[Rfam]
This 178-nucleotide RNA from Ornithinibacillus halophilus belongs to the Rfam family "Lysine riboswitch aptamer". The source organism's lineage runs through Bacteria, Bacillati, Bacillota, Bacillaceae and Ornithinibacillus. Pairs were carried over by alignment from the consensus structure, which is taken from published work. Riboswitches are metabolite binding domains within certain messenger RNAs that serve as precision sensors for their corresponding targets.
RNA sequence: CGAUGAGGUAGAGGUGCGAAUAAUAAGAGUAAGCAAUCGGAGUAUGACAUCGUUGAGGAUUGCCGAAAGGAUUAUUUGCCGAAGCAAAAGUGAAAGUCGAAUUCAUUAUUGCUGGGAUGUCUUCUGAAUAAGAGGCAUACUGUCAUGCAACGCUAGUGCAUGGAGAACUACUGAUCAG
Numbered sequence: 001c002g003a004u005g006a007g008g009u010a011g012a013g014g015u016g017c018g019a020a021u022a023a024u025a026a027g028a029g030u031a032a033g034c035a036a037u038c039g040g041a042g043u044a045u046g047a048c049a050u051c052g053u054u055g056a057g058g059a060u061u062g063c064c065g066a067a068a069g070g071a072u073u074a075u076u077u078g079c080c081g082a083a084g085c086a087a088a089a090g091u092g093a094a095a096g097u098c099g100a101a102u103u104c105a106u107u108a109u110u111g112c113u114g115g116g117a118u119g120u121c122u123u124c125u126g127a128a129u130a131a132g133a134g135g136c137a138u139a140c141u142g143u144c145a146u147g148c149a150a151c152g153c154u155a156g157u158g159c160a161u162g163g164a165g166a167a168c169u170a171c172u173g174a175u176c177a178g
Stems, first nucleotide, its partner, number of pairs: 007172005016079009033063006083113005089107006114141002117138007143163007